[Rfam]
RNA: Molybdenum/Tungsten riboswitch aptamer (Moco RNA motif)
RNA sequence: UAUAUUCCGGUUUUCCGAGCUAGUGAGUCUAAAGGUUUUCCACGACCAACUAGCCUAUGGGUCAUGGGAGAAAUCCCGCGGCCUCCCGCAUUUGGAAAGGAAAAUCUUGACCUGAUUU
Numbered sequence: 001u002a003u004a005u006u007c008c009g010g011u012u013u014u015c016c017g018a019g020c021u022a023g024u025g026a027g028u029c030u031a032a033a034g035g036u037u038u039u040c041c042a043c044g045a046c047c048a049a050c051u052a053g054c055c056u057a058u059g060g061g062u063c064a065u066g067g068g069a070g071a072a073a074u075c076c077c078g079c080g081g082c083c084u085c086c087c088g089c090a091u092u093u094g095g096a097a098a099g100g101a102a103a104a105u106c107u108u109g110a111c112c113u114g115a116u117u118u
Stems, first nucleotide, its partner, number of pairs: 006109001011104006019054006027046003034040002059084005065078005085095002